[Rfam]
RNA sequence: GGGGGCGAUCGGUUUCGACGGGGGUCGCGAAAUCGCCUGGAGCAUGCCGAGGGCGUCAUCUUCCUCGUUAAUCCGGUGGCAAAAAACUCAGACGCCAACGACGACGUCUACGCUGUAGCCGCUUAAGGCUUAAGCCCCGAACCCACUUGUGCCUGUGCUCGUGGAUGUAGGGUCACUAUCACGGGAUCGCUGCUGGUUGCCGUCCGUCGGCCAGCGGUUAACCUAAAACGGGCUGGUCCUUCGGUGCGCUUUGCACGCCGUGUUGCCGCGGGACGAGACCAAAACGGCGCGCUAAGCAUGUAGCGCCGGGGAUGUAGCGCCUUCGGACGGGGGUUCAAUUCCCCCCGCCUCCACCA
Numbered sequence: 001g002g003g004g005g006c007g008a009u010c011g012g013u014u015u016c017g018a019c020g021g022g023g024g025u026c027g028c029g030a031a032a033u034c035g036c037c038u039g040g041a042g043c044a045u046g047c048c049g050a051g052g053g054c055g056u057c058a059u060c061u062u063c064c065u066c067g068u069u070a071a072u073c074c075g076g077u078g079g080c081a082a083a084a085a086a087c088u089c090a091g092a093c094g095c096c097a098a099c100g101a102c103g104a105c106g107u108c109u110a111c112g113c114u115g116u117a118g119c120c121g122c123u124u125a126a127g128g129c130u131u132a133a134g135c136c137c138c139g140a141a142c143c144c145a146c147u148u149g150u151g152c153c154u155g156u157g158c159u160c161g162u163g164g165a166u167g168u169a170g171g172g173u174c175a176c177u178a179u180c181a182c183g184g185g186a187u188c189g190c191u192g193c194u195g196g197u198u199g200c201c202g203u204c205c206g207u208c209g210g211c212c213a214g215c216g217g218u219u220a221a222c223c224u225a226a227a228a229c230g231g232g233c234u235g236g237u238c239c240u241u242c243g244g245u246g247c248g249c250u251u252u253g254c255a256c257g258c259c260g261u262g263u264u265g266c267c268g269c270g271g272g273a274c275g276a277g278a279c280c281a282a283a284a285c286g287g288c289g290c291g292c293u294a295a296g297c298a299u300g301u302a303g304c305g306c307c308g309g310g311g312a313u314g315u316a317g318c319g320c321c322u323u324c325g326g327a328c329g330g331g332g333g334u335u336c337a338a339u340u341c342c343c344c345c346c347g348c349c350u351c352c353a354c355c356a
Stems, first nucleotide, its partner, number of pairs: 001352007019325007030315001032313003036310005042304001043300005048067005055080006113134002117130004136172003141168002146164002152185006189218006202233006236274005242268003253292002258287003329345005